[Rfam]
RNA sequence: CCCGGGCCCGGGUGCAAUGUCCGGGUGGCUGUUCCGGGCCCCGAUCCGCCGGACAACC
Numbered sequence: 001c002c003c004g005g006g007c008c009c010g011g012g013u014g015c016a017a018u019g020u021c022c023g024g025g026u027g028g029c030u031g032u033u034c035c036g037g038g039c040c041c042c043g044a045u046c047c048g049c050c051g052g053a054c055a056a057c058c
Stems, first nucleotide, its partner, number of pairs: 006026006033053005